[Rfam]
RNA sequence: CGGCCCCCAACUUGGGGCCUGGAUACUUGGGGACAACAUGAGGGACAUGAUGAAAGAAGAAAGGGUGCGCACCGGCUCAAAUAGUUCGGAGACGUCACGGUAGCCUGCUGUGACUGAGCUGACAGGUAAGUUGGUCGUUAAUCAUGGGCCAAGAAUUAAGUCAGCAUCAGAAAUAUGUGAUACAGCUAAGAGAAGCUCUACAGGCAAGAGGAGUAAAGGUUACAACUGAGGAUUUAUUUCAUUUCUUUGAUUUCAUGAAAGACAUCUGCCCAU
Numbered sequence: 001c002g003g004c005c006c007c008c009a010a011c012u013u014g015g016g017g018c019c020u021g022g023a024u025a026c027u028u029g030g031g032g033a034c035a036a037c038a039u040g041a042g043g044g045a046c047a048u049g050a051u052g053a054a055a056g057a058a059g060a061a062a063g064g065g066u067g068c069g070c071a072c073c074g075g076c077u078c079a080a081a082u083a084g085u086u087c088g089g090a091g092a093c094g095u096c097a098c099g100g101u102a103g104c105c106u107g108c109u110g111u112g113a114c115u116g117a118g119c120u121g122a123c124a125g126g127u128a129a130g131u132u133g134g135u136c137g138u139u140a141a142u143c144a145u146g147g148g149c150c151a152a153g154a155a156u157u158a159a160g161u162c163a164g165c166a167u168c169a170g171a172a173a174u175a176u177g178u179g180a181u182a183c184a185g186c187u188a189a190g191a192g193a194a195g196c197u198c199u200a201c202a203g204g205c206a207a208g209a210g211g212a213g214u215a216a217a218g219g220u221u222a223c224a225a226c227u228g229a230g231g232a233u234u235u236a237u238u239u240c241a242u243u244u245c246u247u248u249g250a251u252u253u254c255a256u257g258a259a260a261g262a263c264a265u266c267u268g269c270c271c272a273u
Stems, first nucleotide, its partner, number of pairs: 006031003013025002037049003086126002088123001093118001096112005131152004136148001138147003157200002160196002208248006217235005258273001261270001263268001